[Rfam]
RNA: U11 spliceosomal RNA
RNA sequence: AAAAAGGGUGUCUACCGCUUCUAUGGUACGUGGGUCCAAUGCGACUCGCGGGGUAUGGCCAUCAAUACAUACCCGGCACGUAAUUUUUGGAAACGCGGGCAGUUGGCUACCACAGUGUGCCGGCGUCCGC
Numbered sequence: 001a002a003a004a005a006g007g008g009u010g011u012c013u014a015c016c017g018c019u020u021c022u023a024u025g026g027u028a029c030g031u032g033g034g035u036c037c038a039a040u041g042c043g044a045c046u047c048g049c050g051g052g053g054u055a056u057g058g059c060c061a062u063c064a065a066u067a068c069a070u071a072c073c074c075g076g077c078a079c080g081u082a083a084u085u086u087u088u089g090g091a092a093a094c095g096c097g098g099g100c101a102g103u104u105g106g107c108u109a110c111c112a113c114a115g116u117g118u119g120c121c122g123g124c125g126u127c128c129g130c
Stems, first nucleotide, its partner, number of pairs: 008079005013028005029050008037041001051074007097128004102124005108119003111115001